Record summary
The record is a 67-nucleotide RNA from Pipistrellus kuhlii, which matches "mir-9256 microRNA precursor family" in Rfam. Rfam 15.1 lists 31,772 matches to the family in 5 species. Its family is annotated with RISC complex and miRNA-mediated post-transcriptional gene silencing in the Gene Ontology.

RNA sequence: AUAUACACUGAGUGGCCAGAUUAUGAUGAUCUCUGAAUGCAUAAUUAUCUGGCUACUCAGUGUACUU
Number, nucleotide and partner (000 for none) at each position: 001a000002u000003a000004u064005a063006c062007a061008c060009u059010g058011a057012g056013u055014g054015g053016c052017c051018a000019g049020a048021u047022u000023a045024u044025g000026a042027u041028g040029a000030u000031c000032u000033c000034u000035g000036a000037a000038u000039g000040c028041a027042u026043a000044a024045u023046u000047a021048u020049c019050u000051g017052g016053c015054u014055a013056c012057u011058c010059a009060g008061u007062g006063u005064a004065c000066u000067u000